FMN riboswitch aptamer (RFN element): a 132-nucleotide sequence from Victivallis vadensis.

RNA sequence: AUAAGUCUUCGGGGCGGGGUGAAAUUCCCUACCGGCGGUGAAAGUCCGCGAACUUCGGGAACACGGUGUUUCCGGAGCCGAUCCGGUGCGAUUCCGGAACCGACAGUAAAGUCUGGAUGAAAGAAGGCUGAC
Numbered sequence: 001a002u003a004a005g006u007c008u009u010c011g012g013g014g015c016g017g018g019g020u021g022a023a024a025u026u027c028c029c030u031a032c033c034g035g036c037g038g039u040g041a042a043a044g045u046c047c048g049c050g051a052a053c054u055u056c057g058g059g060a061a062c063a064c065g066g067u068g069u070u071u072c073c074g075g076a077g078c079c080g081a082u083c084c085g086g087u088g089c090g091a092u093u094c095c096g097g098a099a100c101c102g103a104c105a106g107u108a109a110a111g112u113c114u115g116g117a118u119g120a121a122a123g124a125a126g127g128c129u130g131a132c
Stems, first nucleotide, its partner, number of pairs: 004129007017029003031112002033102002035049004044100002053077004082098005104115003
Dot-bracket structure: ...(((((((......(((.......))).[[((((((.....[[))))...((((.................))))....(((((.......)))))]])).(((....]]))).......)))))))...